[Rfam]
RNA sequence: AACCAUAAUAAAAAAUAUUGAUUAUGGAAAAAAAAAAAGGAGUUGUCAGGGCUGCCAACCUUACAGUAGAGGUUGAGUGGUAGUAUAUUACUCCUAUAUAA
Numbered sequence: 001a002a003c004c005a006u007a008a009u010a011a012a013a014a015a016u017a018u019u020g021a022u023u024a025u026g027g028a029a030a031a032a033a034a035a036a037a038a039g040g041a042g043u044u045g046u047c048a049g050g051g052c053u054g055c056c057a058a059c060c061u062u063a064c065a066g067u068a069g070a071g072g073u074u075g076a077g078u079g080g081u082a083g084u085a086u087a088u089u090a091c092u093c094c095u096a097u098a099u100a101a
Stems, first nucleotide, its partner, number of pairs: 003027006039094004051081002055077001056075007
Record summary: Small nucleolar RNA U109: a 101-nucleotide RNA sequence from Carlito syrichta. The base pairs follow the family's consensus structure, which was predicted with WAR. Rfam links the family to the GO terms nucleolus and RNA processing.